[Rfam]
RNA sequence: GCUGCGCCUAGCCCGACGGGGCGAAAACCGGUACACCCUUGACCGGCUGGCGUGGCACUUGAUUUCAAAC
Dot-bracket structure: ((((((((..((((....)))).....(((((......[..)))))..))))))))..........]...